[Rfam]
RNA sequence: GCCCGGUUAGUCUAGUGGUAAGGCGGUGGUCUCGAAAACCACUUCUUCUUCGAAGAGCGCAAGUUCAAAUCCUGCAUCGGGCG
Numbered sequence: 001g002c003c004c005g006g007u008u009a010g011u012c013u014a015g016u017g018g019u020a021a022g023g024c025g026g027u028g029g030u031c032u033c034g035a036a037a038a039c040c041a042c043u044u045c046u047u048c049u050u051c052g053a054a055g056a057g058c059g060c061a062a063g064u065u066c067a068a069a070u071c072c073u074g075c076a077u078c079g080g081g082c083g
Stems, first nucleotide, its partner, number of pairs: 001082007010024004026042005059075003063071001